A member of the RNA family "Z30 small nucleolar RNA" from Pycnonotus jocosus, 97 nucleotides long. The source organism's lineage runs through Eukaryota, Opisthokonta, Eumetazoa, Sylvioidea and Pycnonotus. The family has 20 seed sequences and 802 matches in Rfam 15.1.
RNA sequence: AAGCAAUGAUGAGCGAAGUAUAGUCUGAACUGGUAUUGCGAGACUCCGUGUCUCUGCUCUGACCAGGGCAUGAUCACGUAAUCUUCUCUCUGAGCUA
Numbered sequence: 001a002a003g004c005a006a007u008g009a010u011g012a013g014c015g016a017a018g019u020a021u022a023g024u025c026u027g028a029a030c031u032g033g034u035a036u037u038g039c040g041a042g043a044c045u046c047c048g049u050g051u052c053u054c055u056g057c058u059c060u061g062a063c064c065a066g067g068g069c070a071u072g073a074u075c076a077c078g079u080a081a082u083c084u085u086c087u088c089u090c091u092g093a094g095c096u097a
Stems, first nucleotide, its partner, number of pairs: 001096001003095002038057003
Dot-bracket structure: (.((.................................(((..............)))....................................))).